About this RNA:
The family of this 304-nucleotide RNA from Castanea mollissima is "Plant signal recognition particle RNA". Lineage of the source: Eukaryota > Tracheophyta > Magnoliopsida > Pentapetalae > Castanea. Gene Ontology terms of the family: SRP-dependent cotranslational protein targeting to membrane, signal sequence recognition and signal recognition particle, endoplasmic reticulum targeting.
[Rfam]
RNA sequence: ACCGAGCUUGGUAGCGCUGGCUUGUAACUCGAGCGAGGGUAUAUAAGGAGAUGGACCAAGGCUAGGCUCAUUAGGCAGGAUCGGGAAGUGCAAAAUCCUGGCACGCCCGUUCCAAGUUGAGAGCUGGACCACGUGACUUGGGCGAAAGCCUGGGUCUUGUGGUUCCUAGAGUGGAGGGCAUAGCGUGAGGCUGGUUUCACAGAGCAGCGAAGACCUCCCGCCCUCAACAGUGGAAGGAUAACGAGCUGAUGUGCUUCUGAUCCACAUUGCCUGGUGAGUUGAGCUCACUUGAACCAUCUCUUUU
Numbered sequence: 001a002c003c004g005a006g007c008u009u010g011g012u013a014g015c016g017c018u019g020g021c022u023u024g025u026a027a028c029u030c031g032a033g034c035g036a037g038g039g040u041a042u043a044u045a046a047g048g049a050g051a052u053g054g055a056c057c058a059a060g061g062c063u064a065g066g067c068u069c070a071u072u073a074g075g076c077a078g079g080a081u082c083g084g085g086a087a088g089u090g091c092a093a094a095a096u097c098c099u100g101g102c103a104c105g106c107c108c109g110u111u112c113c114a115a116g117u118u119g120a121g122a123g124c125u126g127g128a129c130c131a132c133g134u135g136a137c138u139u140g141g142g143c144g145a146a147a148g149c150c151u152g153g154g155u156c157u158u159g160u161g162g163u164u165c166c167u168a169g170a171g172u173g174g175a176g177g178g179c180a181u182a183g184c185g186u187g188a189g190g191c192u193g194g195u196u197u198c199a200c201a202g203a204g205c206a207g208c209g210a211a212g213a214c215c216u217c218c219c220g221c222c223c224u225c226a227a228c229a230g231u232g233g234a235a236g237g238a239u240a241a242c243g244a245g246c247u248g249a250u251g252u253g254c255u256u257c258u259g260a261u262c263c264a265c266a267u268u269g270c271c272u273g274g275u276g277a278g279u280u281g282a283g284c285u286c287a288c289u290u291g292a293a294c295c296a297u298c299u300c301u302u303u304u
Stems, first nucleotide, its partner, number of pairs: 001040003004023005010017001028037003045303010057291002060286002062283002065280013078263009088254003093250001099248004104243002107237002110235005116228006123221002126165008135156009166171001173218005184209003191202003

It is annotated as a non-coding RNA gene. A reference for the family is Batey et al. (2000), "Crystal structure of the ribonucleoprotein core of the signal recognition particle", Science. A search with the family's covariance model found it, with a score of 240 bits.